Record summary
A member of the RNA family "Alphaproteobacterial ar14" from Sinorhizobium saheli, 113 nucleotides long. Lineage of the source: Bacteria > Pseudomonadati > Pseudomonadota > Hyphomicrobiales > Sinorhizobium. Rfam classes the family as a small RNA. The base pairs follow the family's consensus structure.

RNA sequence: ACUUAUCGAUGGAGCUCUCCUCCUCCCGGCUCCAUCGGGGAUCGGCGACACUCCUCCUCCCAGUUGCCGAUCAGGAUCGAAAGCCCGGCGUCCUCCCACGCCGGGCUUUCUCU
Numbered sequence: 001a002c003u004u005a006u007c008g009a010u011g012g013a014g015c016u017c018u019c020c021u022c023c024u025c026c027c028g029g030c031u032c033c034a035u036c037g038g039g040g041a042u043c044g045g046c047g048a049c050a051c052u053c054c055u056c057c058u059c060c061c062a063g064u065u066g067c068c069g070a071u072c073a074g075g076a077u078c079g080a081a082a083g084c085c086c087g088g089c090g091u092c093c094u095c096c097c098a099c100g101c102c103g104g105g106c107u108u109u110c111u112c113u
Stems, first nucleotide, its partner, number of pairs: 007037009040072010081108011